[Rfam]
RNA sequence: AGUCAUGACAGUGUAAGAGUAGUGGACAGAAGGGAUUUCUAAAAUUUUUAUUUUGAGACU
Numbered sequence: 001a002g003u004c005a006u007g008a009c010a011g012u013g014u015a016a017g018a019g020u021a022g023u024g025g026a027c028a029g030a031a032g033g034g035a036u037u038u039c040u041a042a043a044a045u046u047u048u049u050a051u052u053u054u055g056a057g058a059c060u
Base pairs, nucleotide, nucleotide: 001060002059003058004057
Dot-bracket structure: ((((....................................................))))

Small nucleolar RNA SNORD75: a 60-nucleotide RNA from Spermophilus dauricus. The base pairs follow the family's consensus structure, which was predicted with RNAalifold. Rfam links the family to the GO terms nucleolus and RNA processing. By type it is a C/D-box small nucleolar RNA.